[Rfam]
RNA sequence: AACGCCUGUCGCGGAUCUCCUCCCUUCCCCUGGAGCAGAUCCACCGGGGCCGGACUCCUCCCCAAGUCCGGCUCCCCGCCCCGCCCGGCUCCCCCUGCCCGGCGGGGCUUUUUU
Numbered sequence: 001a002a003c004g005c006c007u008g009u010c011g012c013g014g015a016u017c018u019c020c021u022c023c024c025u026u027c028c029c030c031u032g033g034a035g036c037a038g039a040u041c042c043a044c045c046g047g048g049g050c051c052g053g054a055c056u057c058c059u060c061c062c063c064a065a066g067u068c069c070g071g072c073u074c075c076c077c078g079c080c081c082c083g084c085c086c087g088g089c090u091c092c093c094c095c096u097g098c099c100c101g102g103c104g105g106g107g108c109u110u111u112u113u114u
Base pairs, nucleotide, nucleotide: 004012006011013042014041015040016039017038018037019035021034022033023032046074047073048072050070052068054067055066056065078108079107080106081105082104083103084102087099088098089097
This 114-nucleotide RNA sequence belongs to the Rfam family "Xanthomonadaceae sRNA sX13". The base pairs follow the family's consensus structure, which was predicted with CMfinder. It is one of the family's seed sequences.